The record is a 69-nucleotide RNA sequence from Hordeum vulgare, which matches "Plastid-clpP 5UTR RNA" in Rfam. Pairs were carried over by alignment from the consensus structure, which was predicted with LocARNA. A search with the family's covariance model found it, with a score of 68 bits.

RNA sequence: AAUUAUGUUCACAAGAAGAAAGACAAGCAGAUCUGUUCUAUACUCGAUAAGUGGCAAUAUGCAAUGGGU
Numbered sequence: 001a002a003u004u005a006u007g008u009u010c011a012c013a014a015g016a017a018g019a020a021a022g023a024c025a026a027g028c029a030g031a032u033c034u035g036u037u038c039u040a041u042a043c044u045c046g047a048u049a050a051g052u053g054g055c056a057a058u059a060u061g062c063a064a065u066g067g068g069u
Stems, first nucleotide, its partner, number of pairs: 003022002006019001008017003043068003051060003

Plastid clpP is a non-coding RNA (ncRNA) recognised in plastids. The literature on the family includes a 2023 paper in Plant Commun by Richter et al., "Retrograde signaling in plants: A critical review focusing on the GUN pathway and beyond".